[Rfam]
RNA sequence: CAACAGAGUGGCGGGGGUUCUCAGGAAGCUUGGGAUCCCCCCCCUAC
Number, nucleotide and partner (000 for none) at each position: 001c000002a000003a000004c000005a000006g042007a000008g040009u000010g039011g038012c000013g000014g000015g000016g000017g000018u000019u035020c034021u033022c032023a031024g030025g029026a000027a000028g000029c025030u024031u023032g022033g021034g020035a019036u000037c000038c011039c010040c008041c000042c006043c000044c000045u000046a000047c000

A member of the RNA family "Hepatitis C virus stem-loop I" from Orthohepacivirus hominis, 47 nucleotides long. The sequence is in the family's curated seed alignment. Its family is annotated with viral RNA genome replication in the Gene Ontology. It is annotated as a cis-regulatory element. For this family Rfam cites "Functionally conserved architecture of hepatitis C virus RNA genomes" (Mauger et al., Proc Natl Acad Sci U S A, 2015).